Shown here is an 87-nucleotide RNA from Roseovarius bejariae, a member of the family "Glycine riboswitch aptamer".
[Rfam]
RNA sequence: CUGCCGUGGAUGGGAGAACCGGCCAUGCCGGUGCCGAAGGAGCAACCGCCCCGGAAACUCUCAGGCGACAGGGACCAUCCGAAGGAC
Dot-bracket structure: ......(((((((.....((((.....)))).(((((..(((...((.....))...))))).)))........)))))))......
Numbered sequence: 001c002u003g004c005c006g007u008g009g010a011u012g013g014g015a016g017a018a019c020c021g022g023c024c025a026u027g028c029c030g031g032u033g034c035c036g037a038a039g040g041a042g043c044a045a046c047c048g049c050c051c052c053g054g055a056a057a058c059u060c061u062c063a064g065g066c067g068a069c070a071g072g073g074a075c076c077a078u079c080c081g082a083a084g085g086a087c
Stems, first nucleotide, its partner, number of pairs: 007081007019031004033066003036062002040060003046054002
It scores 53 bits against the family's covariance model. NCBI's taxonomy places the organism under Bacteria, Pseudomonadati, Alphaproteobacteria, Rhodobacterales, Roseovarius. Pairs were carried over by alignment from the consensus structure.